[Rfam]
RNA sequence: AUCGAGUCCCAUCUCCGAGUCCGUCCACCUACAGCCGUCCGGGCCAUGGGGGGCGGACCGAUAGGGUGACGAGGGAAACGUCGUCGCCUGCCGAUUUGCAAAGGAGAUGUCGGAGGGAUCCG
Number, nucleotide and partner (000 for none) at each position: 001a000002u000003c116004g000005a000006g000007u000008c000009c000010c000011a108012u107013c106014u105015c104016c103017g000018a000019g058020u057021c056022c055023g054024u053025c052026c051027a000028c049029c048030u000031a000032c000033a000034g044035c043036c042037g000038u000039c000040c000041g000042g036043g035044c034045c000046a000047u000048g029049g028050g000051g026052g025053g024054c023055g022056g021057a020058c019059c000060g000061a000062u000063a000064g089065g088066g087067u086068g085069a084070c083071g082072a081073g000074g079075g000076a000077a000078a000079c074080g000081u072082c071083g070084u069085c068086g067087c066088c065089u064090g099091c098092c000093g000094a000095u000096u000097u000098g091099c090100a000101a000102a000103g016104g015105a014106g013107a012108u011109g000110u000111c000112g000113g000114a000115g000116g003117g000118a000119u000120c000121c000122g000
A member of the RNA family "Molybdenum/Tungsten riboswitch aptamer (Moco RNA motif)" from Litorilinea aerophila, 122 nucleotides long.